[Rfam]
RNA: mir-160 microRNA precursor family
Organism: Panicum virgatum
RNA sequence: AUAUGCCUGGCUCCCUGUAUGCCACUCGCGUAGCUGCCAGCCAGCCCAGUCGAGCUCCCCCAGGAUUAGCUGUGGGCGUGUACUACGUUGCUGGCUCUACUGCGGAUGGCGUGCGAGGAGCCAAGCAUGA
Number, nucleotide and partner (000 for none) at each position: 001a000002u129003a128004u127005g126006c125007c000008u123009g122010g121011c120012u119013c118014c117015c000016u115017g114018u113019a112020u111021g110022c109023c108024a107025c000026u000027c104028g103029c102030g000031u000032a000033g000034c000035u000036g000037c000038c000039a000040g000041c000042c000043a000044g000045c000046c000047c000048a000049g000050u000051c000052g000053a000054g000055c000056u000057c000058c000059c000060c000061c000062a000063g000064g000065a000066u000067u000068a000069g000070c000071u000072g000073u000074g000075g000076g000077c000078g000079u000080g000081u000082a000083c000084u000085a000086c000087g000088u000089u000090g000091c000092u000093g000094g000095c000096u000097c000098u000099a000100c000101u000102g029103c028104g027105g000106a000107u024108g023109g022110c021111g020112u019113g018114c017115g016116a000117g014118g013119a012120g011121c010122c009123a008124a000125g006126c005127a004128u003129g002130a000